[Rfam]
Rfam assigns this 94-nucleotide RNA sequence to the family "OmrA-B family". The match comes from Rfam's covariance-model search (87 bits). Rfam classes the family as a small RNA.
RNA sequence: CCCAGAGGUAUUGAUUGGUGAAUCAUCCAACAUGUUCUGCAUGUUGAAACCGAUUAAAAUUGCACCAACCUACGCAGAUGCGUAGGUUUUUUUU
Numbered sequence: 001c002c003c004a005g006a007g008g009u010a011u012u013g014a015u016u017g018g019u020g021a022a023u024c025a026u027c028c029a030a031c032a033u034g035u036u037c038u039g040c041a042u043g044u045u046g047a048a049a050c051c052g053a054u055u056a057a058a059a060u061u062g063c064a065c066c067a068a069c070c071u072a073c074g075c076a077g078a079u080g081c082g083u084a085g086g087u088u089u090u091u092u093u094u
Base pairs, nucleotide, nucleotide: 016067017066018065019064020063029045030044031043032042033041034040068087069086070085071084072083073082074081075080